[Rfam]
RNA: ASpks TB sRNA
RNA sequence: UUUGACCGACCCGAGCCAGAGCGGACGGUCCGCCGGGCGGUCCUGGCCGUACGUCGCCAGCAGCGCCUGCGCCUC
Numbered sequence: 001u002u003u004g005a006c007c008g009a010c011c012c013g014a015g016c017c018a019g020a021g022c023g024g025a026c027g028g029u030c031c032g033c034c035g036g037g038c039g040g041u042c043c044u045g046g047c048c049g050u051a052c053g054u055c056g057c058c059a060g061c062a063g064c065g066c067c068u069g070c071g072c073c074u075c
Base pairs, nucleotide, nucleotide: 016024017023031071032070033069038065039064043060044059045058047056049054